[Rfam]
Shown here is a 78-nucleotide RNA from Salix koriyanagi, a member of the family "Small nucleolar RNA Z122". The literature on the family includes a 2003 paper in Nucleic Acids Res by Chen et al., "The high diversity of snoRNAs in plants: identification and comparative study of 120 snoRNA genes from Oryza sativa". A search with the family's covariance model found it, with a score of 45 bits. Taxonomically the source falls in Salix (Eukaryota, Euphyllophyta, Pentapetalae, Malpighiales). Its family is annotated with RNA processing and nucleolus in the Gene Ontology.
RNA sequence: GUUCGGGUAUGAUGACUAAACAAUCAGAGGCUUUGAGCACUGCUGAAUAGUUAUUUUGCACGUCAGUCUGAUCCGAUU
Numbered sequence: 001g002u003u004c005g006g007g008u009a010u011g012a013u014g015a016c017u018a019a020a021c022a023a024u025c026a027g028a029g030g031c032u033u034u035g036a037g038c039a040c041u042g043c044u045g046a047a048u049a050g051u052u053a054u055u056u057u058g059c060a061c062g063u064c065a066g067u068c069u070g071a072u073c074c075g076a077u078u
Base pairs, nucleotide, nucleotide: 001078003076004075005074006073007072